The record is a 173-nucleotide RNA from Corynebacterium bovis, which matches "FMN riboswitch aptamer (RFN element)" in Rfam. The source organism's lineage runs through Bacteria, Bacillati, Actinomycetota, Actinomycetes and Corynebacterium. The RFN element is a highly conserved domain that is found frequently in the 5'-untranslated regions of prokaryotic mRNAs that encode for flavin mononucleotide (FMN) biosynthesis and transport proteins.

RNA sequence: UCGCGUUCUCAGGGCGGGGUGGAAGUCCCCACCGGCGGUGGACGCGGACCGGCCCCCACCAGGCCGACCGCGCGAGCCCGCGAGCGCCACCGGCACCGACGUGCCGGUGGGUCCAGCAGAUUCCGGUGCGAACCCGGAGCCGACGGUCACAGUCCGGACGGAAGAGAACACAC
Numbered sequence: 001u002c003g004c005g006u007u008c009u010c011a012g013g014g015c016g017g018g019g020u021g022g023a024a025g026u027c028c029c030c031a032c033c034g035g036c037g038g039u040g041g042a043c044g045c046g047g048a049c050c051g052g053c054c055c056c057c058a059c060c061a062g063g064c065c066g067a068c069c070g071c072g073c074g075a076g077c078c079c080g081c082g083a084g085c086g087c088c089a090c091c092g093g094c095a096c097c098g099a100c101g102u103g104c105c106g107g108u109g110g111g112u113c114c115a116g117c118a119g120a121u122u123c124c125g126g127u128g129c130g131a132a133c134c135c136g137g138a139g140c141c142g143a144c145g146g147u148c149a150c151a152g153u154c155c156g157g158a159c160g161g162a163a164g165a166g167a168a169c170a171c172a173c
Stems, first nucleotide, its partner, number of pairs: 003171001005169006017029003031153002033142002035081004084117002122138005144156003
Pairs were carried over by alignment from the consensus structure, which is taken from published work.